The family of this 107-nucleotide sequence from Clostridium sp. 7_2_43FAA is "SAM riboswitch aptamer (S box leader)". The sequence is in the family's curated seed alignment. Gene Ontology term of the family: regulation of gene expression.
[Rfam]
Nucleotides: 107
Stems, first nucleotide, its partner, number of pairs: 002106007013041001015040003021031003025084001027082002042076004047072002049068006080099001085096004
Number, partner (000 for none) and nucleotide at each position: 001000g002106u003105c004104u005103u006102a007101u008100c009000a010000a011000g012000a013041g014000u015040g016039g017038u018000g019000g020000a021031g022030g023029g024000a025084c026000u027082g028081g029023c030022c031021c032000u033000a034000u035000g036000a037000a038017g039016c040015c041013c042076a043075g044074c045073a046000a047072c048071c049068a050067a051066g052065a053064a054063u055000u056000u057000u058000a059000a060000u061000c062000g063054a064053u065052u066051c067050u068049u069000a070000a071048g072047g073045u074044g075043c076042u077000a078000a079000a080099u081028c082027c083000u084025g085096c086095a087094g088093g089000a090000a091000a092000u093088c094087c095086u096085g097000g098000u099080a100008g101007a102006u103005a104004a105003g106002a107000g